[Rfam]
RNA sequence: CGGGAAGGGAGCACGGUCGCGCCCCUUUGGGGGUGAGGAAAGUCCGGGCACCGGAGGGCAGGGUGCCAGGUAACGCCUGGGCGCCGCAAGGCGACGGAAAGUGCCACAGAAAGCAGACCGCCGAUCCGCUCCCCUCGGGGAGGUCAUGGAGGCAAGGGUGAAACGGUGGGGUAAGAGCCCACCAGCGCUCCGGGAGACCGGGGCGGCUCGGUAAACCCCACCCGGUGCAAGGCCAGUUAGGCAGGAAGGGCUCGCCCGGCCCGAUCGCACCUGCGGGUUGGCCGCUCGAGGCCGGCGGCGACGUCGGUCCCAGAUAGAUGACCGUGCACGACAGAACCCGGCUUACAUCCCUUCCCACCCC
Dot-bracket structure: .(((((((((((((((((.((((((....))))))....[[[.[[[[[((((...[[[[.((((((((((.....)))))(((((....)))).)((...(((((............(((((..((((..................)))))))..)).......((((((.......)))))).(((((((((....)))))))).)..)))..)))))))))))))...((((......(((((.......((..(.]]]])..))..))))).....))))......((((((((....))))))))..........)))))))..........]]]]]]]].).))))))))).....
Numbered sequence: 001c002g003g004g005a006a007g008g009g010a011g012c013a014c015g016g017u018c019g020c021g022c023c024c025c026u027u028u029g030g031g032g033g034u035g036a037g038g039a040a041a042g043u044c045c046g047g048g049c050a051c052c053g054g055a056g057g058g059c060a061g062g063g064u065g066c067c068a069g070g071u072a073a074c075g076c077c078u079g080g081g082c083g084c085c086g087c088a089a090g091g092c093g094a095c096g097g098a099a100a101g102u103g104c105c106a107c108a109g110a111a112a113g114c115a116g117a118c119c120g121c122c123g124a125u126c127c128g129c130u131c132c133c134c135u136c137g138g139g140g141a142g143g144u145c146a147u148g149g150a151g152g153c154a155a156g157g158g159u160g161a162a163a164c165g166g167u168g169g170g171g172u173a174a175g176a177g178c179c180c181a182c183c184a185g186c187g188c189u190c191c192g193g194g195a196g197a198c199c200g201g202g203g204c205g206g207c208u209c210g211g212u213a214a215a216c217c218c219c220a221c222c223c224g225g226u227g228c229a230a231g232g233c234c235a236g237u238u239a240g241g242c243a244g245g246a247a248g249g250g251c252u253c254g255c256c257c258g259g260c261c262c263g264a265u266c267g268c269a270c271c272u273g274c275g276g277g278u279u280g281g282c283c284g285c286u287c288g289a290g291g292c293c294g295g296c297g298g299c300g301a302c303g304u305c306g307g308u309c310c311c312a313g314a315u316a317g318a319u320g321a322c323c324g325u326g327c328a329c330g331a332c333a334g335a336a337c338c339c340g341g342c343u344u345a346c347a348u349c350c351c352u353u354c355c356c357a358c359c360c361c
Stems, first nucleotide, its partner, number of pairs: 002356009011346001012326007020035006040344003044341005049227004056262004061223005066080005081095001082093004096218002101216002103212003118157002120153003125150004165183006185207001186205008231283004241274005253267002257263001290309008
A member of the RNA family "Bacterial RNase P class A" from Oceanithermus profundus, 361 nucleotides long. The family's consensus secondary structure is taken from published work. A search with the family's covariance model found it, with a score of 286 bits.